[Rfam]
RNA: SAM (S-adenosyl methionine) riboswitch aptamer
Organism: Gordonia humi
RNA sequence: GGUCAUGAGCGUCAGCAGUGAGCCCCGGCUUGCUGACCGGCAACCCUCCAACCGCGGUGGGGUGCUCCGGGUGAUGACCUGGCGGCAACGGGGCGAAGCUUCGUCGCCGCAAGCGCGGGUC
Numbered sequence: 001g002g003u004c005a006u007g008a009g010c011g012u013c014a015g016c017a018g019u020g021a022g023c024c025c026c027g028g029c030u031u032g033c034u035g036a037c038c039g040g041c042a043a044c045c046c047u048c049c050a051a052c053c054g055c056g057g058u059g060g061g062g063u064g065c066u067c068c069g070g071g072u073g074a075u076g077a078c079c080u081g082g083c084g085g086c087a088a089c090g091g092g093g094c095g096a097a098g099c100u101u102c103g104u105c106g107c108c109g110c111a112a113g114c115g116c117g118g119g120u121c
Stems, first nucleotide, its partner, number of pairs: 001079004009038001011037006021030002039066003044062003048057002082110005088104006